[Rfam]
RNA sequence: CAUGAUUAGAUUAGAUUAGUUUAUCUAGGAUUGUUUAGAGGGUAGCCGCAGUCGCCCCAACUCUGACUUGCAAAGCAUUUUUUUGUUUUGUAAGUAGGGCGAGAAACAACAAGCAUUUUGUUGGAAACUUUAAUUUUUUAAUAAAUUAGAGAACUGU
Dot-bracket structure: .....((((((...........))))))...........((((....[[[[..))))...(((..((((((((((((......)))))))))))).....)))...(((((.......)))))....(((((((((......)))))))))..]]]]
Rfam assigns this 157-nucleotide sequence to the family "IS605-orfB-II RNA". By type it is a small RNA. The family's consensus secondary structure is taken from published work.